[Rfam]
RNA sequence: CAAUGAUAACCAACCAACUUUCGUAUAAUUCCGGGAAUCGGCCCGGAAGUCUCUACUCGGUCACCGUAAUGACCAGGCUACGAAAAUUCAGGGGGCGUCC
Numbered sequence: 001c002a003a004u005g006a007u008a009a010c011c012a013a014c015c016a017a018c019u020u021u022c023g024u025a026u027a028a029u030u031c032c033g034g035g036a037a038u039c040g041g042c043c044c045g046g047a048a049g050u051c052u053c054u055a056c057u058c059g060g061u062c063a064c065c066g067u068a069a070u071g072a073c074c075a076g077g078c079u080a081c082g083a084a085a086a087u088u089c090a091g092g093g094g095g096c097g098u099c100c
Base pairs, nucleotide, nucleotide: 019085020084021083022082023081024080025079029048030047031046032045033044034043035042057076059074060073061072062071063070
RNA: Purine riboswitch aptamer